[Rfam]
RNA sequence: GGGGGGAGCGCAGGAUCUUGGGCUGUGUCCCCGGGGUGCCCUGGGCUCCCGGGCCUGCACCACUGGAAUCGCGCUCCCAGCUGCGCAGCCCCCU
Numbered sequence: 001g002g003g004g005g006g007a008g009c010g011c012a013g014g015a016u017c018u019u020g021g022g023c024u025g026u027g028u029c030c031c032c033g034g035g036g037u038g039c040c041c042u043g044g045g046c047u048c049c050c051g052g053g054c055c056u057g058c059a060c061c062a063c064u065g066g067a068a069u070c071g072c073g074c075u076c077c078c079a080g081c082u083g084c085g086c087a088g089c090c091c092c093c094u
Stems, first nucleotide, its partner, number of pairs: 001094006010086002013082002017080002020077003024073004028067003035061005043055001045054003
RNA: mir-8799 microRNA precursor family